[Rfam]
RNA sequence: AUUCUGUUUCAGGGCGAGGCGAAAAUCCUCACUGGCGGUAACCGGAUACGCGCGGCGGCAAGCCGCAGCCAAGCCGGAAGUCCGCGACCCUGUGCGUCAAACGGCGGCAAGCCGCAUGCACGCAAGGUUGACCUGGUGCAACUCCAGGACCAACGGUCAAAGUCCGGAUGGAAGAGGCAGAGU
Numbered sequence: 001a002u003u004c005u006g007u008u009u010c011a012g013g014g015c016g017a018g019g020c021g022a023a024a025a026u027c028c029u030c031a032c033u034g035g036c037g038g039u040a041a042c043c044g045g046a047u048a049c050g051c052g053c054g055g056c057g058g059c060a061a062g063c064c065g066c067a068g069c070c071a072a073g074c075c076g077g078a079a080g081u082c083c084g085c086g087a088c089c090c091u092g093u094g095c096g097u098c099a100a101a102c103g104g105c106g107g108c109a110a111g112c113c114g115c116a117u118g119c120a121c122g123c124a125a126g127g128u129u130g131a132c133c134u135g136g137u138g139c140a141a142c143u144c145c146a147g148g149a150c151c152a153a154c155g156g157u158c159a160a161a162g163u164c165c166g167g168a169u170g171g172a173a174g175a176g177g178c179a180g181a182g183u
Stems, first nucleotide, its partner, number of pairs: 003181008017029003031163002033152002035085004089127002132148005154166003
RNA: FMN riboswitch aptamer (RFN element)